[Rfam]
RNA: U7 small nuclear RNA
Organism: Aotus nancymaae
RNA sequence: AAACAUUACAGCUCCUUUAGAAUUUGUCUCAUAGGUUUUCUGAUUCUCACUGGAAAAUCUCC
Number, nucleotide and partner (000 for none) at each position: 001a000002a000003a000004c000005a000006u000007u000008a000009c000010a000011g000012c000013u000014c000015c000016u000017u000018u000019a000020g000021a000022a000023u000024u000025u000026g000027u000028c000029u000030c000031a000032u000033a000034g059035g058036u057037u056038u055039u054040c053041u052042g051043a000044u049045u000046c000047u000048c000049a044050c000051u042052g041053g040054a039055a038056a037057a036058u035059c034060u000061c000062c000